[Rfam]
RNA: Purine riboswitch aptamer
RNA sequence: UUUAAUAGGUUCGUUUACCUUCAUAUAUCCUCAAAAAUAAGGUUUGAGAGUCUCUACCGGACCGCCGUAAAUGGUCUGACUAUGAAGGCAGGAUUUUAACUA
Numbered sequence: 001u002u003u004a005a006u007a008g009g010u011u012c013g014u015u016u017a018c019c020u021u022c023a024u025a026u027a028u029c030c031u032c033a034a035a036a037a038u039a040a041g042g043u044u045u046g047a048g049a050g051u052c053u054c055u056a057c058c059g060g061a062c063c064g065c066c067g068u069a070a071a072u073g074g075u076c077u078g079a080c081u082a083u084g085a086a087g088g089c090a091g092g093a094u095u096u097u098a099a100c101u102a
Base pairs, nucleotide, nucleotide: 018088019087020086021085022084023083024082025081030048031047032046033045034044035043058078059077060076061075062074063073064072